[Rfam]
RNA sequence: CCAGUCCUCUUAGGGGAGUAAUCAGCUUUGCAAGUAUGCAAAGAUUCUUUGUCAACAUAAUUGAGCCUCAUGCUCAUGGCAAAGAAAUUUGAACAACGUUGUUCGGAUUGAUGAGACUUAAGACAGUAACUUGGCUCAGGUGGGCACAGGUUGUUGUCUUUCGUUUGUCGCCCACCUA
Dot-bracket structure: .........................(((............))).((((((((((.......(((((.....)))))))))))))))......(...................................................................................).
Numbered sequence: 001c002c003a004g005u006c007c008u009c010u011u012a013g014g015g016g017a018g019u020a021a022u023c024a025g026c027u028u029u030g031c032a033a034g035u036a037u038g039c040a041a042a043g044a045u046u047c048u049u050u051g052u053c054a055a056c057a058u059a060a061u062u063g064a065g066c067c068u069c070a071u072g073c074u075c076a077u078g079g080c081a082a083a084g085a086a087a088u089u090u091g092a093a094c095a096a097c098g099u100u101g102u103u104c105g106g107a108u109u110g111a112u113g114a115g116a117c118u119u120a121a122g123a124c125a126g127u128a129a130c131u132u133g134g135c136u137c138a139g140g141u142g143g144g145c146a147c148a149g150g151u152u153g154u155u156g157u158c159u160u161u162c163g164u165u166u167g168u169c170g171c172c173c174a175c176c177u178a
Stems, first nucleotide, its partner, number of pairs: 026043003045086010062076005093177001